[Rfam]
The record is a 433-nucleotide part of an RNA from Oenococcus oeni, which matches "Bacterial large subunit ribosomal RNA" in Rfam. A reference for the family is Yusupov et al. (2001), "Crystal structure of the ribosome at 5.5 A resolution", Science. The source organism's lineage runs through Bacteria, Bacillati, Bacillota, Lactobacillaceae and Oenococcus oeni.

RNA sequence: CUAUCCGAAAUACAUUUAGGUGUAGCCUUGCAAUUAGCUUACUGGAGGUAGAGCACUAUUUGGUCUAGGGGCCCUUCAAGGGUUACCAAAAUCAGAUAAACUCCGAAUGCCAGCUAAGUAUGUGCAGGAGUCAGACGGUGAGUGAUAAGAUCCAUCGUCAAAAGGGGAACAGCCCAGAUCACCAGUUAAGGUCCCUAAAUAUAUGCUAAGUGGAAAACGUUGUGAAGGUGCAUAGACAACUAGGAGGUUGGCUCAGAAGCAGCCACCCUUUAAAGAGUGCGUAAUAGCUCACUAGUCGAGUGCUCUUGCGCGGAUAAUGUACCGGGGCUAAGCAUAUUACCGAAACUGUGGAUGCGUAAGCAUGGUAGGAUAGCGUAAUUAACGCGAUGAAGGAUGACCGUAAGGACAUGUUGGAGCGUUAACUAGUGAGAAU
Dot-bracket structure: ((((((....(((((....))))).(((((((...((((((((((.....(((...(((.((((...(((((((.....))))).))...)))).)))..)).).....)))).))))).).)))))).)...(((((((.((......)).)))))))....(((......)))...((((.(((...(((......(.((((((...........(((.((((.(((((.......(((((.(((..(((.........)))..)))(...)(...((......)).).)))))...))))).)))))))...................))))))))))...)))))))((((....))))....))))))(.((.(((((((......(((((.((....)).))).))...))))))).))..).....
Numbered sequence: 001c002u003a004u005c006c007g008a009a010a011u012a013c014a015u016u017u018a019g020g021u022g023u024a025g026c027c028u029u030g031c032a033a034u035u036a037g038c039u040u041a042c043u044g045g046a047g048g049u050a051g052a053g054c055a056c057u058a059u060u061u062g063g064u065c066u067a068g069g070g071g072c073c074c075u076u077c078a079a080g081g082g083u084u085a086c087c088a089a090a091a092u093c094a095g096a097u098a099a100a101c102u103c104c105g106a107a108u109g110c111c112a113g114c115u116a117a118g119u120a121u122g123u124g125c126a127g128g129a130g131u132c133a134g135a136c137g138g139u140g141a142g143u144g145a146u147a148a149g150a151u152c153c154a155u156c157g158u159c160a161a162a163a164g165g166g167g168a169a170c171a172g173c174c175c176a177g178a179u180c181a182c183c184a185g186u187u188a189a190g191g192u193c194c195c196u197a198a199a200u201a202u203a204u205g206c207u208a209a210g211u212g213g214a215a216a217a218c219g220u221u222g223u224g225a226a227g228g229u230g231c232a233u234a235g236a237c238a239a240c241u242a243g244g245a246g247g248u249u250g251g252c253u254c255a256g257a258a259g260c261a262g263c264c265a266c267c268c269u270u271u272a273a274a275g276a277g278u279g280c281g282u283a284a285u286a287g288c289u290c291a292c293u294a295g296u297c298g299a300g301u302g303c304u305c306u307u308g309c310g311c312g313g314a315u316a317a318u319g320u321a322c323c324g325g326g327g328c329u330a331a332g333c334a335u336a337u338u339a340c341c342g343a344a345a346c347u348g349u350g351g352a353u354g355c356g357u358a359a360g361c362a363u364g365g366u367a368g369g370a371u372a373g374c375g376u377a378a379u380u381a382a383c384g385c386g387a388u389g390a391a392g393g394a395u396g397a398c399c400g401u402a403a404g405g406a407c408a409u410g411u412u413g414g415a416g417c418g419u420u421a422a423c424u425a426g427u428g429a430g431a432a433u
Stems, first nucleotide, its partner, number of pairs: 001373006011024005026130001027128006036121001037119005042113004051104001052102002057098003061094004068087002070084005134159007142151002164175003179351004184347003190341003199338001201337006218312003222309004227304005239296005245269003250264003270274001275290001279288002352363004374428001376425002379422007392412002394409003398405002